[Rfam]
RNA sequence: UGCGCUUUUCUUAUAACCCUUCAUAUAUCUUCGAUGAUAUGGAUCGAAAGUUUCUACCGAAUCACCGUAAAUGAUUUGACUAUGAAGGCGGAUUUUAUUUGG
Numbered sequence: 001u002g003c004g005c006u007u008u009u010c011u012u013a014u015a016a017c018c019c020u021u022c023a024u025a026u027a028u029c030u031u032c033g034a035u036g037a038u039a040u041g042g043a044u045c046g047a048a049a050g051u052u053u054c055u056a057c058c059g060a061a062u063c064a065c066c067g068u069a070a071a072u073g074a075u076u077u078g079a080c081u082a083u084g085a086a087g088g089c090g091g092a093u094u095u096u097a098u099u100u101g102g
Stems, first nucleotide, its partner, number of pairs: 018088008030048006058078007